RNA sequence: GGCGUAUUUCGCGUUGGCGGAGUUCGACCGCCGCAGGACGCCAUGAUCGCCUUCAUCGACGCUCAUCGCGAGGCCUGCGGGGUCGAGCCGAUCUGCAGGGUGCUGCCGAUCGCCCCG
Dot-bracket structure: ...............(((((.......))))).............................................(((((......((.((.((((....)))).)).)))))))
Numbered sequence: 001g002g003c004g005u006a007u008u009u010c011g012c013g014u015u016g017g018c019g020g021a022g023u024u025c026g027a028c029c030g031c032c033g034c035a036g037g038a039c040g041c042c043a044u045g046a047u048c049g050c051c052u053u054c055a056u057c058g059a060c061g062c063u064c065a066u067c068g069c070g071a072g073g074c075c076u077g078c079g080g081g082g083u084c085g086a087g088c089c090g091a092u093c094u095g096c097a098g099g100g101u102g103c104u105g106c107c108g109a110u111c112g113c114c115c116c117g
Stems, first nucleotide, its partner, number of pairs: 016032005078117005089112002092109002095106004